[Rfam]
Shown here is a 257-nucleotide RNA sequence from Arabidopsis thaliana, a member of the family "MIR856 microRNA precursor family". The sequence is in the family's curated seed alignment. Taxonomically the source falls in Arabidopsis (Eukaryota, Mesangiospermae, eudicotyledons, malvids). Rfam links the family to the GO terms miRNA-mediated post-transcriptional gene silencing and RISC complex.
RNA sequence: AGGUGAGACUGUUGGCUUUAAUCCUACCAAUAACUUCAGCUGCAUCAUGAAGAGUAGACAGAGAUUCUGGCGGUUGAGGGUUUCUUCGUAGAGGUUGAUCGAUUCUUAAUGUCCUGUGGAUUUUAAGUUCCCAAAACUGUUGCUUAGGACAUACAAGAUCGUUCAAUGUCCAAGAAGAAACCUGAGCCGCUACAAUCAUCGGUCUAAUCUCUUUAGCAGAUGAAGUUAUUUGUGGUAUAAAACCCACAGUUUUAUCA
Numbered sequence: 001a002g003g004u005g006a007g008a009c010u011g012u013u014g015g016c017u018u019u020a021a022u023c024c025u026a027c028c029a030a031u032a033a034c035u036u037c038a039g040c041u042g043c044a045u046c047a048u049g050a051a052g053a054g055u056a057g058a059c060a061g062a063g064a065u066u067c068u069g070g071c072g073g074u075u076g077a078g079g080g081u082u083u084c085u086u087c088g089u090a091g092a093g094g095u096u097g098a099u100c101g102a103u104u105c106u107u108a109a110u111g112u113c114c115u116g117u118g119g120a121u122u123u124u125a126a127g128u129u130c131c132c133a134a135a136a137c138u139g140u141u142g143c144u145u146a147g148g149a150c151a152u153a154c155a156a157g158a159u160c161g162u163u164c165a166a167u168g169u170c171c172a173a174g175a176a177g178a179a180a181c182c183u184g185a186g187c188c189g190c191u192a193c194a195a196u197c198a199u200c201g202g203u204c205u206a207a208u209c210u211c212u213u214u215a216g217c218a219g220a221u222g223a224a225g226u227u228a229u230u231u232g233u234g235g236u237a238u239a240a241a242a243c244c245c246a247c248a249g250u251u252u253u254a255u256c257a
Stems, first nucleotide, its partner, number of pairs: 002256011014244002017241004024235004029230010040219004048215007055206005061200002063197004068192008078183010091170002094167005100161005109152008126138004